[Rfam]
RNA sequence: ACGCCCCUGCCGGGAGCGCGCUCAGGGACCGGAACUCCGGCACCUCCGCGCCCGCUGCCGGAUGGUCUUCCGAACCGAGGCGUCAUG
Numbered sequence: 001a002c003g004c005c006c007c008u009g010c011c012g013g014g015a016g017c018g019c020g021c022u023c024a025g026g027g028a029c030c031g032g033a034a035c036u037c038c039g040g041c042a043c044c045u046c047c048g049c050g051c052c053c054g055c056u057g058c059c060g061g062a063u064g065g066u067c068u069u070c071c072g073a074a075c076c077g078a079g080g081c082g083u084c085a086u087g
Base pairs, nucleotide, nucleotide: 001083002082003081004080005079010061011060012059013058015056016055017054018053020051021050025047026046027043029040030039031038032037063077064076065075
RNA: dauA ncRNA motif
Organism: Streptomyces qaidamensis